[Rfam]
Record summary:
Rfam assigns this 102-nucleotide RNA sequence from Sapindus mukorossi to the family "Plastid-rps12 3UTR RNA". Rfam classes the family as a cis-regulatory element. For this family Rfam cites "Retrograde signaling in plants: A critical review focusing on the GUN pathway and beyond" (Richter et al., Plant Commun, 2023). The organism belongs to Sapindus, within Eukaryota.

RNA sequence: GGUUUCAAUUGGUGCAAAUUCAAUCACCUCAAUUUUGAAUUUAAGAUGAGAAAGAAUUCCCCAUUGGUAACAAAUAGUUAUCCAUUAAGCGGGGUAAAUCCU
Numbered sequence: 001g002g003u004u005u006c007a008a009u010u011g012g013u014g015c016a017a018a019u020u021c022a023a024u025c026a027c028c029u030c031a032a033u034u035u036u037g038a039a040u041u042u043a044a045g046a047u048g049a050g051a052a053a054g055a056a057u058u059c060c061c062c063a064u065u066g067g068u069a070a071c072a073a074a075u076a077g078u079u080a081u082c083c084a085u086u087a088a089g090c091g092g093g094g095u096a097a098a099u100c101c102u
Stems, first nucleotide, its partner, number of pairs: 009023004059094004063085002066082006

About this RNA:
The sequence is in the family's curated seed alignment. Rfam describes the family as follows. Plastid rpl20 is a non-coding RNA (ncRNA) recognised in plastids.